[Rfam]
RNA sequence: GAGUGUACGGUGGAUGCCUUGGCAUCAGCAGGCGAUGAAGGGCGUGGUAAGCUGCGAUAAGCCUCGGGUAGUCGCACACAGACGCUAAUCCGAGGAUGCCCGAAUGGGGAAACCCGAUCCGAGUCAUGUCGGAUCAUCGCUGGGUGAAUACAUAGCCCAGAUGAGGCUAACCGGGGGAACUGAAACAUCUCAGUACCUCGAGGAAAAGAAAGCAACCGCGAUUCCCUAAGUAGCGGCGAGCGAAAGGGGAUGAGCCUAAACCGGCGGCGUGUGAUAGCCCGUAUGCGUUGCGUCGACGGGGUUGAGGGGUCUUGCCUGAUUCUAGUACGGUAGAGUCGAAGAGUGAUAAAUCUCACUCCUAAUUGAACGAUCUGGAAAGGUCGGCCAUAGAAGGUGACAGCCCUGUAGAGUAAAGGAGUGAGACUCUUUGCGCAGGAUACCCAAGUACCAUAGGACACGUGAAAUCCUGUGGGAAUCCGGGGGGACCGCCCUCCAAGGCUAAACACUCGCUGAUGACCGAUAGUGAACCAGUACCGUGAGGGAAAGGUGAAAAGCACCCCUGUGAGGGGAGUGAAAUAGUACCUGAAACCGUACACUUAC
Numbered sequence: 001g002a003g004u005g006u007a008c009g010g011u012g013g014a015u016g017c018c019u020u021g022g023c024a025u026c027a028g029c030a031g032g033c034g035a036u037g038a039a040g041g042g043c044g045u046g047g048u049a050a051g052c053u054g055c056g057a058u059a060a061g062c063c064u065c066g067g068g069u070a071g072u073c074g075c076a077c078a079c080a081g082a083c084g085c086u087a088a089u090c091c092g093a094g095g096a097u098g099c100c101c102g103a104a105u106g107g108g109g110a111a112a113c114c115c116g117a118u119c120c121g122a123g124u125c126a127u128g129u130c131g132g133a134u135c136a137u138c139g140c141u142g143g144g145u146g147a148a149u150a151c152a153u154a155g156c157c158c159a160g161a162u163g164a165g166g167c168u169a170a171c172c173g174g175g176g177g178a179a180c181u182g183a184a185a186c187a188u189c190u191c192a193g194u195a196c197c198u199c200g201a202g203g204a205a206a207a208g209a210a211a212g213c214a215a216c217c218g219c220g221a222u223u224c225c226c227u228a229a230g231u232a233g234c235g236g237c238g239a240g241c242g243a244a245a246g247g248g249g250a251u252g253a254g255c256c257u258a259a260a261c262c263g264g265c266g267g268c269g270u271g272u273g274a275u276a277g278c279c280c281g282u283a284u285g286c287g288u289u290g291c292g293u294c295g296a297c298g299g300g301g302u303u304g305a306g307g308g309g310u311c312u313u314g315c316c317u318g319a320u321u322c323u324a325g326u327a328c329g330g331u332a333g334a335g336u337c338g339a340a341g342a343g344u345g346a347u348a349a350a351u352c353u354c355a356c357u358c359c360u361a362a363u364u365g366a367a368c369g370a371u372c373u374g375g376a377a378a379g380g381u382c383g384g385c386c387a388u389a390g391a392a393g394g395u396g397a398c399a400g401c402c403c404u405g406u407a408g409a410g411u412a413a414a415g416g417a418g419u420g421a422g423a424c425u426c427u428u429u430g431c432g433c434a435g436g437a438u439a440c441c442c443a444a445g446u447a448c449c450a451u452a453g454g455a456c457a458c459g460u461g462a463a464a465u466c467c468u469g470u471g472g473g474a475a476u477c478c479g480g481g482g483g484g485a486c487c488g489c490c491c492u493c494c495a496a497g498g499c500u501a502a503a504c505a506c507u508c509g510c511u512g513a514u515g516a517c518c519g520a521u522a523g524u525g526a527a528c529c530a531g532u533a534c535c536g537u538g539a540g541g542g543a544a545a546g547g548u549g550a551a552a553a554g555c556a557c558c559c560c561u562g563u564g565a566g567g568g569g570a571g572u573g574a575a576a577u578a579g580u581a582c583c584u585g586a587a588a589c590c591g592u593a594c595a596c597u598u599a600c
Stems, first nucleotide, its partner, number of pairs: 001598010016583001017547002021518002023515007030507002032167002040101003043056003062095007071083003106115003116135007137164003140160006171202001172200005182189002212219002222503001223250005233241002253500004261299003265295007306442003311436005349425001351423010363409002368383005386390001392404003448472008479494005534541002557569004

Source information
Rfam assigns this 600-nucleotide part of an RNA from Methylomirabilis oxygeniifera to the family "Bacterial large subunit ribosomal RNA". Rfam's curators put it in the seed alignment. The family has 102 seed sequences and 51,934 matches in Rfam 15.1.